This 135-nucleotide RNA sequence from Canis lupus belongs to the Rfam family "Small nucleolar RNA SNORA48". About the family: The snoRNA ACA 48 has been identified to guide pseudouridylation of the residue U3797 in the 28S rRNA subunit. Taxonomically the source falls in Canis lupus (Eukaryota, Sarcopterygii, Mammalia, Caniformia). Rfam classes the family as an H/ACA-box small nucleolar RNA. The sequence is in the family's curated seed alignment. Pairs were carried over by alignment from the consensus structure, which was predicted with RNAalifold. Clan: SNORA48 clan.

RNA sequence: AGUCUCUGACCUGGGUAGAGUGGCAUCUGGUUGGUAGUGCCUGCCUCAUAUUAGCCAGGGACAAAGCAACGCCUUGUUUAUCCCAGCUUGGCUUUUGGUCUGUGCCUGUGCCUAGUUCAUGCCCUGGACAUGUGG
Numbered sequence: 001a002g003u004c005u006c007u008g009a010c011c012u013g014g015g016u017a018g019a020g021u022g023g024c025a026u027c028u029g030g031u032u033g034g035u036a037g038u039g040c041c042u043g044c045c046u047c048a049u050a051u052u053a054g055c056c057a058g059g060g061a062c063a064a065a066g067c068a069a070c071g072c073c074u075u076g077u078u079u080a081u082c083c084c085a086g087c088u089u090g091g092c093u094u095u096u097g098g099u100c101u102g103u104g105c106c107u108g109u110g111c112c113u114a115g116u117u118c119a120u121g122c123c124c125u126g127g128a129c130a131u132g133u134g135g
Stems, first nucleotide, its partner, number of pairs: 002062007011054004018047003022041005075130006090123003096119003100115003104111002